Shown here is a 126-nucleotide sequence from Amazona aestiva, a member of the family "Small nucleolar RNA SNORA1". Rfam's curators write: ACA1 is a member of the H/ACA class of snoRNA that guide the sites of modification of uridines to pseudouridines. The family has 29 seed sequences and 1,282 matches in Rfam 15.1.
RNA sequence: UGGCACAUUAUUCAACAAAUAGACACAACUCGCUGUGUCUGAAUUGAAGAAUGUGGCUAGAAAAGGAACAGGUUGUGCUUUCCUCACUGCAUAGUUGCAGUGGUGACAAUGAGACCUGUAACAGGU
Number, nucleotide and partner (000 for none) at each position: 001u000002g057003g000004c055005a000006c053007a052008u051009u000010a000011u000012u000013c000014a000015a000016c000017a000018a000019a000020u000021a040022g039023a038024c037025a036026c035027a034028a000029c000030u000031c000032g000033c000034u027035g026036u025037g024038u023039c022040u021041g000042a000043a000044u000045u000046g000047a000048a000049g000050a000051a008052u007053g006054u000055g004056g000057c002058u000059a000060g000061a000062a000063a000064a000065g000066g000067a000068a119069c118070a117071g116072g115073u000074u000075g000076u000077g000078c000079u000080u000081u000082c105083c000084u103085c102086a101087c100088u000089g000090c000091a000092u000093a000094g000095u000096u000097g000098c000099a000100g087101u086102g085103g084104u000105g082106a000107c000108a000109a000110u000111g000112a000113g000114a000115c072116c071117u070118g069119u068120a000121a000122c000123a000124g000125g000126u000

The source organism's lineage runs through Eukaryota, Sarcopterygii, Sauropsida, Neognathae and Amazona.